[Rfam]
RNA sequence: AUAGCUAUGGAGAUAUGGUGCCUGAAACAAUAGCUGGUAAAAUUGUUGGAGGAGUUUGCUCUCUUAGUGGUGUCCUUGUAAUUGCCUUGCCUGUACCAGUAAUUGUAUCAAAU
Numbered sequence: 001a002u003a004g005c006u007a008u009g010g011a012g013a014u015a016u017g018g019u020g021c022c023u024g025a026a027a028c029a030a031u032a033g034c035u036g037g038u039a040a041a042a043u044u045g046u047u048g049g050a051g052g053a054g055u056u057u058g059c060u061c062u063c064u065u066a067g068u069g070g071u072g073u074c075c076u077u078g079u080a081a082u083u084g085c086c087u088u089g090c091c092u093g094u095a096c097c098a099g100u101a102a103u104u105g106u107a108u109c110a111a112a113u
Stems, first nucleotide, its partner, number of pairs: 001113002004109001006107005013100002017096001020094002036076002039073001048062003
Rfam assigns this 113-nucleotide sequence from Agrilus planipennis to the family "Potassium channel RNA editing signal". A reference for the family is Bhalla et al. (2004), "Control of human potassium channel inactivation by editing of a small mRNA hairpin", Nat Struct Mol Biol. Lineage of the source: Eukaryota > Bilateria > Ecdysozoa > Neuropteroidea > Agrilus. The match comes from Rfam's covariance-model search (77 bits). By type it is a cis-regulatory element. Pairs were carried over by alignment from the consensus structure, which is taken from published work. From the family's description: This family represents a group of sequences related to the human potassium channel Kv1.1 hairpin element which directs the efficient modification of an adenosine to inosine by an adenosine deaminase acting on RNA (ADAR). The ADAR modification causes an isoleucine/valine recoding event which lies in the ion-conducting pore of the potassium channel. It is thought that this editing event targets the process of fast inactivation and allows a more rapid recovery from inactivation at negative potentials.